[Rfam]
RNA: Small nucleolar RNA SNORD87
Organism: Python bivittatus
Nucleotides: 079
Base pairs, nucleotide, nucleotide: 002078003077004076005075006074007073
Number, partner (000 for none) and nucleotide at each position: 001000u002078c003077u004076g005075g006074c007073a008000c009000a010000a011000u012000g013000a014000u015000g016000a017000u018000u019000u020000u021000c022000u023000u024000u025000u026000g027000c028000c029000g030000u031000u032000u033000a034000c035000c036000c037000a038000u039000c040000u041000g042000a043000a044000u045000g046000u047000g048000u049000g050000a051000u052000g053000u054000g055000u056000a057000u058000u059000u060000u061000c062000c063000a064000a065000u066000u067000c068000u069000g070000a071000g072000g073007u074006g075005c076004c077003a078002g079000u